[Rfam]
RNA sequence: GGGCGCGUAGCUCAGUGGUAGAGCACUGUGUUGACAUCGCAGGGGUCGCUGGUUCAAUCCCAGCCGCGCCCA
Numbered sequence: 001g002g003g004c005g006c007g008u009a010g011c012u013c014a015g016u017g018g019u020a021g022a023g024c025a026c027u028g029u030g031u032u033g034a035c036a037u038c039g040c041a042g043g044g045g046u047c048g049c050u051g052g053u054u055c056a057a058u059c060c061c062a063g064c065c066g067c068g069c070c071c072a
Stems, first nucleotide, its partner, number of pairs: 001071007010024004026042005048064005
Dot-bracket structure: (((((((..((((.......)))).(((((.......))))).....(((((.......)))))))))))).
A member of the RNA family "tRNA" from Parasphingopyxis marina, 72 nucleotides long. Clan: tRNA clan. Taxonomically the source falls in Parasphingopyxis (Bacteria, Pseudomonadati, Pseudomonadota, Alphaproteobacteria). Rfam describes the family as follows. Transfer RNA (tRNA) molecules are approximately 80 nucleotides in length. Rfam classes the family as a transfer RNA.